[Rfam]
RNA: mir-184 microRNA precursor family
Organism: Laodelphax striatellus
RNA sequence: CCUGUUACGCUCCCUUAUCAUUCUCUUGGCCAGUUAUUAUAACUUACUGGACGGAGAACUGAUAAGGGCUUGUGGCAGA
Numbered sequence: 001c002c003u004g005u006u007a008c009g010c011u012c013c014c015u016u017a018u019c020a021u022u023c024u025c026u027u028g029g030c031c032a033g034u035u036a037u038u039a040u041a042a043c044u045u046a047c048u049g050g051a052c053g054g055a056g057a058a059c060u061g062a063u064a065a066g067g068g069c070u071u072g073u074g075g076c077a078g079a
Stems, first nucleotide, its partner, number of pairs: 012068009021058006030050002